The family of this 53-nucleotide RNA sequence from Kryptolebias marmoratus is "Glutamine-II riboswitch aptamer".
The literature on the family includes a 2019 paper in Nucleic Acids Res by Huang et al., "Structure and ligand binding of the glutamine-II riboswitch".
Pairs were carried over by alignment from the consensus structure, which is taken from published work.
Gene Ontology term of the family: glutamine binding.
[Rfam]
RNA sequence: AUACGCCACCUUUCCAUCAAGGCGCAUCCGAUCGAGGAUGGAACGGCCCUCGA
Numbered sequence: 001a002u003a004c005g006c007c008a009c010c011u012u013u014c015c016a017u018c019a020a021g022g023c024g025c026a027u028c029c030g031a032u033c034g035a036g037g038a039u040g041g042a043a044c045g046g047c048c049c050u051c052g053a
Stems, first nucleotide, its partner, number of pairs: 004045002007041001009022004032053006